[Rfam]
RNA sequence: UGCAGGAGGAACCCAAUAUGACGAAGUCAUAUUAAGGAAUGGUUCCGACGACCUGCCGCCGAGCGAAGGCGAGGGGCGACACAGAUU
Number, nucleotide and partner (000 for none) at each position: 001u000002g000003c000004a000005g000006g000007a000008g046009g045010a044011a043012c042013c041014c000015a000016a032017u031018a030019u029020g028021a027022c000023g000024a000025a000026g000027u021028c020029a019030u018031a017032u016033u000034a000035a000036g000037g000038a000039a000040u000041g013042g012043u011044u010045c009046c008047g000048a000049c000050g000051a000052c000053c000054u000055g077056c076057c075058g000059c074060c073061g000062a000063g070064c069065g000066a000067a000068g000069g064070c063071g000072a000073g060074g059075g057076g056077c055078g000079a000080c000081a000082c000083a000084g000085a000086u000087u000
Rfam assigns this 87-nucleotide RNA to the family "GA-cis RNA". Rfam's curators put it in the seed alignment. The family's consensus secondary structure is taken from published work. By type it is a small RNA.